[Rfam]
Source information: The record is a 98-nucleotide sequence from Macaca mulatta, which matches "mir-639 microRNA precursor family" in Rfam.
RNA sequence: UGGCCGACGGGGCGCGCGCGGCCGGGAGGGGCGGGGCGGACGCACAGCCGCGUUUAGUCUAGCGCAGCGGUCGCGAGCGCUCUGGGUAUCCUGUCCUG
Numbered sequence: 001u002g003g004c005c006g007a008c009g010g011g012g013c014g015c016g017c018g019c020g021g022c023c024g025g026g027a028g029g030g031g032c033g034g035g036g037c038g039g040a041c042g043c044a045c046a047g048c049c050g051c052g053u054u055u056a057g058u059c060u061a062g063c064g065c066a067g068c069g070g071u072c073g074c075g076a077g078c079g080c081u082c083u084g085g086g087u088a089u090c091c092u093g094u095c096c097u098g
Stems, first nucleotide, its partner, number of pairs: 002097002007094005012080004017075007025068001028065001030063001034060004038055006

Description
The family's consensus secondary structure was predicted with RNAalifold.